[Rfam]
RNA sequence: UGUGCUUUACUUUUUAUUUGAGGCCAAUUAUUACUGUCGUUUAUUUGGUCUGUGAAAAGGUAAAGCAAGAUCAAUAAAUUAGGAACCUCUCGCUAUCCACUGCUUGUAUAUUUGUUUUGCAUUUGGACGUCGAGGAUCUACAUUU
Numbered sequence: 001u002g003u004g005c006u007u008u009a010c011u012u013u014u015u016a017u018u019u020g021a022g023g024c025c026a027a028u029u030a031u032u033a034c035u036g037u038c039g040u041u042u043a044u045u046u047g048g049u050c051u052g053u054g055a056a057a058a059g060g061u062a063a064a065g066c067a068a069g070a071u072c073a074a075u076a077a078a079u080u081a082g083g084a085a086c087c088u089c090u091c092g093c094u095a096u097c098c099a100c101u102g103c104u105u106g107u108a109u110a111u112u113u114g115u116u117u118u119g120c121a122u123u124u125g126g127a128c129g130u131c132g133a134g135g136a137u138c139u140a141c142a143u144u145u
Stems, first nucleotide, its partner, number of pairs: 001073002003067003008062006021051007030044002083138002086135004091129002096127004106116001